[Rfam]
RNA: Nuclear RNase P
RNA sequence: GGCCGAGGAAGCUCAUCAGCGGGCCACGUGCUGAGUGCUGGUCACUCCCAGGCCCUGGGUAAGGACUGAGACUGGCACCUCCCGUGGCCAUAACUGUGCCCUCCAGGAGUGGAGAGGUAAGUUCCCUGAGAGCAGGGCUCCAUGUGUGGGCAGGCUUGGCAGGAGAGGCCCCGAGUGGGCAGAUGCUUCUCUGGCUGGAGCUUGGAACAGACUCAUGGCCAGAGCAGAAUGAGUUCAAUGGGUGAGGUGAGGUACCUCGAAGACCUCAUAACCCAAUUCAGACUACUCUCCCCUAACC
Numbered sequence: 001g002g003c004c005g006a007g008g009a010a011g012c013u014c015a016u017c018a019g020c021g022g023g024c025c026a027c028g029u030g031c032u033g034a035g036u037g038c039u040g041g042u043c044a045c046u047c048c049c050a051g052g053c054c055c056u057g058g059g060u061a062a063g064g065a066c067u068g069a070g071a072c073u074g075g076c077a078c079c080u081c082c083c084g085u086g087g088c089c090a091u092a093a094c095u096g097u098g099c100c101c102u103c104c105a106g107g108a109g110u111g112g113a114g115a116g117g118u119a120a121g122u123u124c125c126c127u128g129a130g131a132g133c134a135g136g137g138c139u140c141c142a143u144g145u146g147u148g149g150g151c152a153g154g155c156u157u158g159g160c161a162g163g164a165g166a167g168g169c170c171c172c173g174a175g176u177g178g179g180c181a182g183a184u185g186c187u188u189c190u191c192u193g194g195c196u197g198g199a200g201c202u203u204g205g206a207a208c209a210g211a212c213u214c215a216u217g218g219c220c221a222g223a224g225c226a227g228a229a230u231g232a233g234u235u236c237a238a239u240g241g242g243u244g245a246g247g248u249g250a251g252g253u254a255c256c257u258c259g260a261a262g263a264c265c266u267c268a269u270a271a272c273c274c275a276a277u278u279c280a281g282a283c284u285a286c287u288c289u290c291c292c293c294u295a296a297c298c
Stems, first nucleotide, its partner, number of pairs: 001298002007291003012246006020057001021055003033047005066281005086220004101114005117216002120213004137201003247269007